Source information:
This 112-nucleotide RNA from Heyndrickxia coagulans belongs to the Rfam family "epsC RNA". NCBI's taxonomy places the organism under Bacteria, Bacillota, Bacilli, Bacillaceae, Heyndrickxia coagulans.
RNA sequence: CGGGUAUGUCUCUCAUCCGUUAUCGUGCGAGGCACUCGGCCAUGCUGUGGGUGUGUGUGCACCUUAGACGCCUGUCGUCAAGAGUGUGGUGUGAGGGCGGGUUAGAUGCCCG
Numbered sequence: 001c002g003g004g005u006a007u008g009u010c011u012c013u014c015a016u017c018c019g020u021u022a023u024c025g026u027g028c029g030a031g032g033c034a035c036u037c038g039g040c041c042a043u044g045c046u047g048u049g050g051g052u053g054u055g056u057g058u059g060c061a062c063c064u065u066a067g068a069c070g071c072c073u074g075u076c077g078u079c080a081a082g083a084g085u086g087u088g089g090u091g092u093g094a095g096g097g098c099g100g101g102u103u104a105g106a107u108g109c110c111c112g
Stems, first nucleotide, its partner, number of pairs: 001019004007034006035095004039090008049064003053060002067079004098112005